[Rfam]
RNA sequence: ACGACUUUACUUGAACAGGAUCUAUUUUAUAGGCUCGAACCUCUGUAUCCUUGAGUUCUAAGGAGACAGGAAACCAAGUCUAGUGGAUGAAUCAGGUUUGCUUAACCAAAGCGUGAUUAACAACUCCUCGGUUCAAGCUGCUAAGCCACUGGGGCAGUAGAGGAUCAUUCUCAGUCAGCUUCAGCUGGUUGGGAUGGUCUUGUAGAUGUCUGAUAGACU
Numbered sequence: 001a002c003g004a005c006u007u008u009a010c011u012u013g014a015a016c017a018g019g020a021u022c023u024a025u026u027u028u029a030u031a032g033g034c035u036c037g038a039a040c041c042u043c044u045g046u047a048u049c050c051u052u053g054a055g056u057u058c059u060a061a062g063g064a065g066a067c068a069g070g071a072a073a074c075c076a077a078g079u080c081u082a083g084u085g086g087a088u089g090a091a092u093c094a095g096g097u098u099u100g101c102u103u104a105a106c107c108a109a110a111g112c113g114u115g116a117u118u119a120a121c122a123a124c125u126c127c128u129c130g131g132u133u134c135a136a137g138c139u140g141c142u143a144a145g146c147c148a149c150u151g152g153g154g155c156a157g158u159a160g161a162g163g164a165u166c167a168u169u170c171u172c173a174g175u176c177a178g179c180u181u182c183a184g185c186u187g188g189u190u191g192g193g194a195u196g197g198u199c200u201u202g203u204a205g206a207u208g209u210c211u212g213a214u215a216g217a218c219u
Stems, first nucleotide, its partner, number of pairs: 002037001003035001005033003013027003017023002043069004048064006078218005097206005105198004110169002113166001123158003127154003131150001133148001137146003170193010
RNA: Plant small nucleolar RNA U3